RNA: eL15-Euryarchaeota ribosomal protein leader
RNA sequence: GCGGGAUCCGUCCCGCCGGAAUGUGGCCCUCACGGGCUGAACCACGAA
Dot-bracket structure: (((((......))))).((.....(((((....)))))...)).....